[Rfam]
RNA: Rhizobiales sRNA Atu_C9
Organism: Gellertiella hungarica
RNA sequence: GGUCAACAGCCAGGGAGGCCACCAUGAUGGGACUCGCGAAUUCGUUGAAUGCGCUACUGGUCGGUGCUGCGUUUGUCUUCGUUGCCGCCAUGCUUUUCGUGUGAAGAGGCCGUUACUGCGGAGAAGACAGGUUAUAUCGGCCUCAGACCUGAAGAGGCCACAGAUUUCAGAACGACGAACGGGGCGCCGGAGAUCAUCCGGCGCCCC
Numbered sequence: 001g002g003u004c005a006a007c008a009g010c011c012a013g014g015g016a017g018g019c020c021a022c023c024a025u026g027a028u029g030g031g032a033c034u035c036g037c038g039a040a041u042u043c044g045u046u047g048a049a050u051g052c053g054c055u056a057c058u059g060g061u062c063g064g065u066g067c068u069g070c071g072u073u074u075g076u077c078u079u080c081g082u083u084g085c086c087g088c089c090a091u092g093c094u095u096u097u098c099g100u101g102u103g104a105a106g107a108g109g110c111c112g113u114u115a116c117u118g119c120g121g122a123g124a125a126g127a128c129a130g131g132u133u134a135u136a137u138c139g140g141c142c143u144c145a146g147a148c149c150u151g152a153a154g155a156g157g158c159c160a161c162a163g164a165u166u167u168c169a170g171a172a173c174g175a176c177g178a179a180c181g182g183g184g185c186g187c188c189g190g191a192g193a194u195c196a197u198c199c200g201g202c203g204c205c206c207c
Base pairs, nucleotide, nucleotide: 020053022051029045031043032042181207182206183205184204185203186202187201188200189199190198191197